[Rfam]
RNA sequence: UGUCUGGGCACUUUGCGCGCUAAGCAGGCGCCAGGGCUGAUUACUUGCAGUCAGGUACCUGAAGUAGCGCGCGCAGUGUGAGACG
Numbered sequence: 001u002g003u004c005u006g007g008g009c010a011c012u013u014u015g016c017g018c019g020c021u022a023a024g025c026a027g028g029c030g031c032c033a034g035g036g037c038u039g040a041u042u043a044c045u046u047g048c049a050g051u052c053a054g055g056u057a058c059c060u061g062a063a064g065u066a067g068c069g070c071g072c073g074c075a076g077u078g079u080g081a082g083a084c085g
Stems, first nucleotide, its partner, number of pairs: 009078004014073001016071007030056003035052004
Annotation
A member of the RNA family "mir-275 microRNA precursor family" from Hermetia illucens, 85 nucleotides long. Taxonomically the source falls in Hermetia (Eukaryota, Dicondylia, Pterygota, Panorpida). The match comes from Rfam's covariance-model search (75 bits).